This 87-nucleotide RNA sequence from Xylanimonas cellulosilytica belongs to the Rfam family "SAM riboswitch aptamer (S box leader)". NCBI's taxonomy places the organism under Bacteria, Micrococcales, Promicromonosporaceae, Xylanimonas, Xylanimonas cellulosilytica. A search with the family's covariance model found it, with a score of 45 bits. The base pairs follow the family's consensus structure, which is taken from published work. Rfam links the family to the GO term regulation of gene expression.
RNA sequence: CGACCAUCCCGAGCGGCCGAGUGACGUGGCACGUCGACGCCGCAGCAACCCUGUGCCGCAGGGUGCUCCCGCCACGACCGAUGGAGG
Numbered sequence: 001c002g003a004c005c006a007u008c009c010c011g012a013g014c015g016g017c018c019g020a021g022u023g024a025c026g027u028g029g030c031a032c033g034u035c036g037a038c039g040c041c042g043c044a045g046c047a048a049c050c051c052u053g054u055g056c057c058g059c060a061g062g063g064u065g066c067u068c069c070c071g072c073c074a075c076g077a078c079c080g081a082u083g084g085a086g087g
Base pairs, nucleotide, nucleotide: 001087004084005083006082007081008080013043014042015041016040017039021032022031023030027074028073029072044067045066046065047064049063050062051061052060053059054058071079